[Rfam]
Shown here is a 122-nucleotide sequence from Prunus armeniaca, a member of the family "MIR408 microRNA precursor family". A search with the family's covariance model found it, with a score of 101 bits. For this family Rfam cites "Novel and stress-regulated microRNAs and other small RNAs from Arabidopsis" (Sunkar and Zhu, Plant Cell, 2004). The source organism's lineage runs through Eukaryota, Tracheophyta, eudicotyledons, Rosaceae and Prunus. The base pairs follow the family's consensus structure, which was predicted with WAR. Rfam links the family to the GO terms miRNA-mediated post-transcriptional gene silencing and RISC complex.
RNA sequence: GGAAAGAGACUGAUAAGACAGGGAACAGGUAGAGCAUGGAUGGAGUUCCCAACAGAAAAAUAGAGCUGUUGUGGCUCUACUCAUGCACUGCCUCUUCCCUGGCUGCCGUCCUCAAUCUUCCU
Number, nucleotide and partner (000 for none) at each position: 001g000002g000003a000004a000005a000006g000007a000008g000009a000010c000011u000012g000013a000014u000015a000016a104017g103018a000019c101020a100021g099022g098023g097024a096025a095026c000027a093028g092029g091030u090031a089032g088033a000034g086035c085036a084037u083038g082039g081040a000041u000042g000043g077044a076045g000046u000047u000048c000049c000050c000051a000052a000053c000054a000055g000056a000057a000058a000059a000060a000061u000062a000063g000064a000065g000066c000067u000068g000069u000070u000071g000072u000073g000074g000075c000076u044077c043078u000079a000080c000081u039082c038083a037084u036085g035086c034087a000088c032089u031090g030091c029092c028093u027094c000095u025096u024097c023098c022099c021100u020101g019102g000103c017104u016105g000106c000107c000108g000109u000110c000111c000112u000113c000114a000115a000116u000117c000118u000119u000120c000121c000122u000